[Rfam]
RNA sequence: UCUAAAACUCCAGAUAUGGGCCAAACACUGAACAGCUGCAGGACAGAUUCGGACUUCUCCGUUGUUGCUAUGAUUUGGACUUGAAAACGGCCUUGUUAGAUUUUUAUGUUCACAUGAAAGUUGUAGGCCUAUGUCUCGCCAAGGUUGUGUA
Number, nucleotide and partner (000 for none) at each position: 001u000002c000003u151004a150005a000006a148007a146008c143009u142010c000011c000012a136013g135014a134015u133016a132017u131018g130019g129020g128021c126022c000023a124024a000025a122026c000027a121028c120029u119030g000031a000032a000033c000034a000035g115036c000037u108038g107039c000040a104041g103042g102043a101044c000045a000046g097047a096048u095049u000050c000051g092052g091053a000054c090055u089056u000057c000058u000059c000060c000061g000062u000063u000064g080065u079066u078067g000068c000069u000070a000071u000072g000073a000074u000075u000076u000077g000078g066079a065080c064081u000082u000083g000084a000085a000086a000087a000088c000089g055090g054091c052092c051093u000094u000095g048096u047097u046098a000099g000100a000101u043102u042103u041104u040105u000106a000107u038108g037109u000110u000111c000112a000113c000114a000115u035116g000117a000118a000119a029120g028121u027122u025123g000124u023125a000126g021127g000128c020129c019130u018131a017132u016133g015134u014135c013136u012137c000138g000139c000140c000141a000142a009143g008144g000145u000146u007147g000148u006149g000150u004151a003